[Rfam]
RNA sequence: GGGGACCUUCGGGGCCCUUCAUACCAUAGCCACCACAGCGUGGCGUAAGCAAAACGGAAGACAGACA
Numbered sequence: 001g002g003g004g005a006c007c008u009u010c011g012g013g014g015c016c017c018u019u020c021a022u023a024c025c026a027u028a029g030c031c032a033c034c035a036c037a038g039c040g041u042g043g044c045g046u047a048a049g050c051a052a053a054a055c056g057g058a059a060g061a062c063a064g065a066c067a
Base pairs, nucleotide, nucleotide: 001018002017003016004015006014007013008012029044030043031042032041033040

Rfam assigns this 67-nucleotide RNA from Sulfitobacter sediminilitoris to the family "L2-Alphaproteobacteria ribosomal protein leader".
It scores 56 bits against the family's covariance model.